[Rfam]
Record summary
A member of the RNA family "c-di-GMP-I riboswitch aptamer" from Paenibacillus radicis, 91 nucleotides long. NCBI's taxonomy places the organism under Bacteria, Bacillati, Bacillota, Caryophanales, Paenibacillus.

RNA sequence: UAGCGCUGUGAGCAAACCGCGCGAAAGCGCGGGACGCAAAGUCUGGAGUCUUCUGUGCAAUUUAUUGUACAAUGAUCGUCCGAUUGCCAUG
Numbered sequence: 001u002a003g004c005g006c007u008g009u010g011a012g013c014a015a016a017c018c019g020c021g022c023g024a025a026a027g028c029g030c031g032g033g034a035c036g037c038a039a040a041g042u043c044u045g046g047a048g049u050c051u052u053c054u055g056u057g058c059a060a061u062u063u064a065u066u067g068u069a070c071a072a073u074g075a076u077c078g079u080c081c082g083a084u085u086g087c088c089a090u091g
Stems, first nucleotide, its partner, number of pairs: 012037002017032006040085004045081003048076003055070006
Dot-bracket structure: ...........((...((((((....))))))...))..((((.((((((....((((((....))))))...)))..)))))))......